[Rfam]
Rfam assigns this 96-nucleotide RNA from Streptomyces abyssalis to the family "Glycine riboswitch aptamer". It scores 64 bits against the family's covariance model. Its family is annotated with glycine biosynthetic process in the Gene Ontology. From the family's description: This family represents the bacterial glycine riboswitch. The organism belongs to Streptomyces, within Bacteria.
RNA sequence: GGACCCCGAGCGGGAGAGUCCUCCGGCGCCAGCCGGGGGCGCCGAAGGAGCAACUCCUCCCCGGAAUCUCUCAGGCUCACGUACCGCGCGGGCGAG
Numbered sequence: 001g002g003a004c005c006c007c008g009a010g011c012g013g014g015a016g017a018g019u020c021c022u023c024c025g026g027c028g029c030c031a032g033c034c035g036g037g038g039g040c041g042c043c044g045a046a047g048g049a050g051c052a053a054c055u056c057c058u059c060c061c062c063g064g065a066a067u068c069u070c071u072c073a074g075g076c077u078c079a080c081g082u083a084c085c086g087c088g089c090g091g092g093c094g095a096g
Base pairs, nucleotide, nucleotide: 006091007090008089010087011086012085013084020039021038022037023036041076042075043074044072045071048070049069050068054064055063
Dot-bracket structure: .....(((.((((......((((............)))).(((((..(((...((.......))...))))).))).......)))).))).....